[Rfam]
RNA: Glycine riboswitch aptamer
RNA sequence: CUCUGGAGAGUGUUACGGGCUUAACCGUGACCACCAAAGGGGAAAACCUUUCUAAGGCAAAACUUUCAGGUUUCAGGACAGAG
Numbered sequence: 001c002u003c004u005g006g007a008g009a010g011u012g013u014u015a016c017g018g019g020c021u022u023a024a025c026c027g028u029g030a031c032c033a034c035c036a037a038a039g040g041g042g043a044a045a046a047c048c049u050u051u052c053u054a055a056g057g058c059a060a061a062a063c064u065u066u067c068a069g070g071u072u073u074c075a076g077g078a079c080a081g082a083g
Stems, first nucleotide, its partner, number of pairs: 001083005012031004033071003037066001040065003047057001
Dot-bracket structure: (((((......((((............)))).(((.(..(((....(.........).....))))..))).......)))))